[Rfam]
RNA sequence: ACUUUCACAGGAAAUGGUGUCUUCCUGACCCAACCGCCCCGGAAGUUUCCGGGACUGAUGGCGCCUACAAAUAG
Numbered sequence: 001a002c003u004u005u006c007a008c009a010g011g012a013a014a015u016g017g018u019g020u021c022u023u024c025c026u027g028a029c030c031c032a033a034c035c036g037c038c039c040c041g042g043a044a045g046u047u048u049c050c051g052g053g054a055c056u057g058a059u060g061g062c063g064c065c066u067a068c069a070a071a072u073a074g
Stems, first nucleotide, its partner, number of pairs: 010025004016065006036055001038053006
RNA: Fluoride riboswitch aptamer (crcB RNA motif)